[Rfam]
RNA: mir-548 microRNA precursor family
RNA sequence: UAUUAGGUUGGUGCAAAAGUGAUUACGGUUUUUGCCAUUAAAAGUAGUGGCAAAAAUCGCAAUCACUUUUGCAUCAACCUAAUA
Numbered sequence: 001u002a003u004u005a006g007g008u009u010g011g012u013g014c015a016a017a018a019g020u021g022a023u024u025a026c027g028g029u030u031u032u033u034g035c036c037a038u039u040a041a042a043a044g045u046a047g048u049g050g051c052a053a054a055a056a057u058c059g060c061a062a063u064c065a066c067u068u069u070u071g072c073a074u075c076a077a078c079c080u081a082a083u084a
Base pairs, nucleotide, nucleotide: 001084002083003082004081005080006079007078008077009076010075011074012073013072014071015070016069017068018067019066020065021064022063023062024061026059027058028057029056030055031054032053033052034051035050036049037048038047039046040045